[Rfam]
RNA sequence: UCGACUGUACUCGAACAGGAUCACUUAUGUAGUGAUUUCCUUUCGUUCACAAGAGUACUCUUGACAAAACCCUAAACCGUGAUGAUGAUACGUAUACCGCAUCCACUCGGAGGUUUAGUCCACUCCACUGAUGUGGUAGUGCGACUUCGAUGAGUUCAUCUCCUCAAAAGGGGGAUGUGGGUGACGGUAAUACUGAGCGGUU
Numbered sequence: 001u002c003g004a005c006u007g008u009a010c011u012c013g014a015a016c017a018g019g020a021u022c023a024c025u026u027a028u029g030u031a032g033u034g035a036u037u038u039c040c041u042u043u044c045g046u047u048c049a050c051a052a053g054a055g056u057a058c059u060c061u062u063g064a065c066a067a068a069a070c071c072c073u074a075a076a077c078c079g080u081g082a083u084g085a086u087g088a089u090a091c092g093u094a095u096a097c098c099g100c101a102u103c104c105a106c107u108c109g110g111a112g113g114u115u116u117a118g119u120c121c122a123c124u125c126c127a128c129u130g131a132u133g134u135g136g137u138a139g140u141g142c143g144a145c146u147u148c149g150a151u152g153a154g155u156u157c158a159u160c161u162c163c164u165c166a167a168a169a170g171g172g173g174g175a176u177g178u179g180g181g182u183g184a185c186g187g188u189a190a191u192a193c194u195g196a197g198c199g200g201u202u
Base pairs, nucleotide, nucleotide: 003039006035008034009033010032011031017028019026020025043067045065046064047063049061051059076201077200078199079198080197095189096188097187098186099185100183101182102181103180104179105178108154117146118145121141157177158176159175160174162172
Dot-bracket structure: ..(..(.((((.....(.((....)).)..)))))...)...(.(((.(.(.......).).))).)........(((((..............(((((((((((..(........((..(...................)...)).......)..((((.(.........).)))))))))).))))).......))))).
Shown here is a 202-nucleotide RNA sequence from Perkinsus marinus, a member of the family "ACEA small nucleolar RNA U3". Rfam classes the family as a C/D-box small nucleolar RNA. About the family: Small nucleolar RNAs (snoRNAs) are involved in the processing and modification of rRNA in the nucleolus. There are two main classes of snoRNAs: the box C/D class, and the box H/ACA class. The family's consensus secondary structure is taken from published work.